[Rfam]
RNA sequence: AUCCCCAAGGAGCGUUGCAGCGAAGCCGCCCGGUUUCGUCAGGCUUGGGUUUUCAAGAUUCCUGCCCCCGCGGCAGACUUUUUGCAACGACGCUCACCUUGC
Numbered sequence: 001a002u003c004c005c006c007a008a009g010g011a012g013c014g015u016u017g018c019a020g021c022g023a024a025g026c027c028g029c030c031c032g033g034u035u036u037c038g039u040c041a042g043g044c045u046u047g048g049g050u051u052u053u054c055a056a057g058a059u060u061c062c063u064g065c066c067c068c069c070g071c072g073g074c075a076g077a078c079u080u081u082u083u084g085c086a087a088c089g090a091c092g093c094u095c096a097c098c099u100u101g102c
Stems, first nucleotide, its partner, number of pairs: 004049005021038006
RNA: SAH (S-adenosyl-L-homocysteine) riboswitch aptamer
Organism: Polaromonas sp. Pch-P